[Rfam]
RNA sequence: AAAUUUUUUAUCGGCAUAGAACACUCAUGUCGAUAAAAUUAUUUGAAACCUUA
Numbered sequence: 001a002a003a004u005u006u007u008u009u010a011u012c013g014g015c016a017u018a019g020a021a022c023a024c025u026c027a028u029g030u031c032g033a034u035a036a037a038a039u040u041a042u043u044u045g046a047a048a049c050c051u052u053a
Stems, first nucleotide, its partner, number of pairs: 011033007
RNA: Plastid-atpF group II-D1 intron
Organism: Terminalia guyanensis